[Rfam]
RNA sequence: GGGUGAGGUAGAGGCGCAUCAGCUAUUAGUAACUAUAUGAAGGCCGGAAGCCAAUGAAGUAUAGUGAAAGGAGUUGUUGCCGAAGUCUCAAGCAUCCAAAGCUUGGGGCUGGGCCUGUAUCCGAAUAGGUGCAGGACUGUCAUCAGGGAAAAAGCCCGCUUCCCUGAUGGAGAGCUAUCUCACAC
Numbered sequence: 001g002g003g004u005g006a007g008g009u010a011g012a013g014g015c016g017c018a019u020c021a022g023c024u025a026u027u028a029g030u031a032a033c034u035a036u037a038u039g040a041a042g043g044c045c046g047g048a049a050g051c052c053a054a055u056g057a058a059g060u061a062u063a064g065u066g067a068a069a070g071g072a073g074u075u076g077u078u079g080c081c082g083a084a085g086u087c088u089c090a091a092g093c094a095u096c097c098a099a100a101g102c103u104u105g106g107g108g109c110u111g112g113g114c115c116u117g118u119a120u121c122c123g124a125a126u127a128g129g130u131g132c133a134g135g136a137c138u139g140u141c142a143u144c145a146g147g148g149a150a151a152a153a154g155c156c157c158g159c160u161u162c163c164c165u166g167a168u169g170g171a172g173a174g175c176u177a178u179c180u181c182a183c184a185c
Stems, first nucleotide, its partner, number of pairs: 006180006016080003020076005032065007084110010095099001111138002114135008140170011
Dot-bracket structure: .....((((((....(((.(((((.......(((((((....................)))))))......))))).)))...((((((((((.(...).))))))))))((.((((((((......)))))))).)).(((((((((((.........)))))))))))....)))))).....
Record summary
Shown here is a 185-nucleotide RNA from Thermohalobacter berrensis, a member of the family "Lysine riboswitch aptamer". Lineage of the source: Bacteria > Bacillati > Bacillota > Thermohalobacteraceae > Thermohalobacter.